[Rfam]
RNA sequence: GUCGGUCCUCGGUAGUGGCUUCCGGGCAGAUGAUGCCCGUGGGCCUCGAUCGAAGACCGGC
Numbered sequence: 001g002u003c004g005g006u007c008c009u010c011g012g013u014a015g016u017g018g019c020u021u022c023c024g025g026g027c028a029g030a031u032g033a034u035g036c037c038c039g040u041g042g043g044c045c046u047c048g049a050u051c052g053a054a055g056a057c058c059g060g061c
Base pairs, nucleotide, nucleotide: 001061002060003059004058005057006056007055009053010052011051012050013049017045018044019043020042021041023039024038025037026036027035028034
Overview:
Actino-pnp RNA: a 61-nucleotide RNA sequence.